A member of the RNA family "L13-Bacteroidia ribosomal protein leader", 70 nucleotides long. The literature on the family includes a 2020 paper in BMC Microbiol by Eckert and Weinberg, "Discovery of 20 novel ribosomal leader candidates in bacteria and archaea". The family's consensus secondary structure is taken from published work.
RNA sequence: AGCCCUUAAUGGGCUCUCUUUCUGCGUGUUAAUAGCUUUUCUCUUGGCCUGGGAAAGCGGUUAGUGAAUC
Number, nucleotide and partner (000 for none) at each position: 001a015002g014003c013004c012005c011006u000007u000008a000009a000010u000011g005012g004013g003014c002015u001016c000017u000018c000019u000020u000021u000022c000023u000024g000025c000026g000027u000028g000029u064030u063031a062032a061033u060034a000035g058036c057037u056038u000039u055040u054041c053042u052043c051044u000045u000046g000047g000048c000049c000050u000051g043052g042053g041054a040055a039056a037057g036058c035059g000060g033061u032062u031063a030064g029065u000066g000067a000068a000069u000070c000